Shown here is an 83-nucleotide RNA from Eshraghiella crossota, a member of the family "c-di-GMP-I riboswitch aptamer".
RNA sequence: UUGAAUAUUAGGCAAACCAAUCGAAAGGUUGGGACGCAAAGCCAAGGGCCUUUCCCUUAACAGGGUGGCAGCCGGUUGCAUAU
Numbered sequence: 001u002u003g004a005a006u007a008u009u010a011g012g013c014a015a016a017c018c019a020a021u022c023g024a025a026a027g028g029u030u031g032g033g034a035c036g037c038a039a040a041g042c043c044a045a046g047g048g049c050c051u052u053u054c055c056c057u058u059a060a061c062a063g064g065g066u067g068g069c070a071g072c073c074g075g076u077u078g079c080a081u082a083u
Base pairs, nucleotide, nucleotide: 012037013036017032018031019030020029021028022027040077041076042075043074046073047072048069049068050067054065055064056063057062
Source information
A reference for the family is Weinberg et al. (2007), "Identification of 22 candidate structured RNAs in bacteria using the CMfinder comparative genomics pipeline", Nucleic Acids Res. The source organism's lineage runs through Bacteria, Bacillati, Clostridia, Lachnospirales and Eshraghiella crossota. Pairs were carried over by alignment from the consensus structure, which is taken from published work.